This 85-nucleotide sequence from Pusillimonas sp. T2 belongs to the Rfam family "SucA RNA motif". By type it is a cis-regulatory element. A search with the family's covariance model found it, with a score of 57 bits. The literature on the family includes a 2007 paper in Nucleic Acids Res by Weinberg et al., "Identification of 22 candidate structured RNAs in bacteria using the CMfinder comparative genomics pipeline".

RNA sequence: CCGCUAUCCGCUAACCGGUCUGGCCGUGUCGCGGAAGGUUGUCCCCCCUGCAUCAAACGAGUGAAGCACUCGGUAAGGUGAAGCG
Dot-bracket structure: .(((..(((((....((((...))))....))))).((........))..((((...((((((...))))))....))))..)))